[Rfam]
RNA sequence: AAUCUUAUGAAGCCGAAUUCCUGGGCACCAGGAAACGGGGGAACCAUCUUUGGGUGAAUUGAUCUCGCAAGUAAGGGAUCAUAGGGAACCUUCAACCGAACCCUCAGCUAACCUCGUAGGCAUUGGAAGGAGUACUA
Numbered sequence: 001a002a003u004c005u006u007a008u009g010a011a012g013c014c015g016a017a018u019u020c021c022u023g024g025g026c027a028c029c030a031g032g033a034a035a036c037g038g039g040g041g042a043a044c045c046a047u048c049u050u051u052g053g054g055u056g057a058a059u060u061g062a063u064c065u066c067g068c069a070a071g072u073a074a075g076g077g078a079u080c081a082u083a084g085g086g087a088a089c090c091u092u093c094a095a096c097c098g099a100a101c102c103c104u105c106a107g108c109u110a111a112c113c114u115c116g117u118a119g120g121c122a123u124u125g126g127a128a129g130g131a132g133u134a135c136u137a
Stems, first nucleotide, its partner, number of pairs: 012121003018034005035117006046050001052103003060081007084097002

Shown here is a 137-nucleotide sequence from Paenibacillus selenitireducens, a member of the family "c-di-AMP riboswitch aptamer (ydaO/yuaA leader)".
The match comes from Rfam's covariance-model search (75 bits).
Rfam describes the family as follows. This family represents a conserved RNA structure found upstream of the ydaO and yuaA genes in Bacillus subtilis and related genes in other bacteria.